Annotation:
This 131-nucleotide RNA from Caenorhabditis elegans belongs to the Rfam family "Caenorhabditis snoRNA ceN42". The sequence is in the family's curated seed alignment. NCBI's taxonomy places the organism under Eukaryota, Bilateria, Ecdysozoa, Chromadorea, Caenorhabditis. Gene Ontology terms of the family: nucleolus and RNA processing.
RNA sequence: AUUCCUUCUUAUCCUGCACUCAGUUUGUUCAUUGACUGUGGAGCCUGGAAAUGGAGGAGAAAGUAAAUUUGAUGAUUACUAAUACUUCGCUGUCUUUAGAGGACGCGGAGAUUGUGAGACUUGAAACAUUU
Numbered sequence: 001a002u003u004c005c006u007u008c009u010u011a012u013c014c015u016g017c018a019c020u021c022a023g024u025u026u027g028u029u030c031a032u033u034g035a036c037u038g039u040g041g042a043g044c045c046u047g048g049a050a051a052u053g054g055a056g057g058a059g060a061a062a063g064u065a066a067a068u069u070u071g072a073u074g075a076u077u078a079c080u081a082a083u084a085c086u087u088c089g090c091u092g093u094c095u096u097u098a099g100a101g102g103a104c105g106c107g108g109a110g111a112u113u114g115u116g117a118g119a120c121u122u123g124a125a126a127c128a129u130u131u
Stems, first nucleotide, its partner, number of pairs: 003058006012049003016044002019040001021038005068125005076117004085110003089106001091105005